A member of the RNA family "SAH (S-adenosyl-L-homocysteine) riboswitch aptamer" from Nocardioides sp., 81 nucleotides long.

RNA sequence: CCAGCCGAGAGGCGUUGCAACGGACCGUCCACCGAGGAGGUUCGCCACGCUCGGCCGGACCACCAAGGGCGCCUUCCAUCA
Dot-bracket structure: .(.(((((............((((((............))))))......))))).)........................
Taxonomically the source falls in Nocardioides (Bacteria, Actinomycetota, Actinomycetes, Nocardioidaceae). The literature on the family includes a 2008 paper in Mol Cell by Wang et al., "Riboswitches that sense S-adenosylhomocysteine and activate genes involved in coenzyme recycling".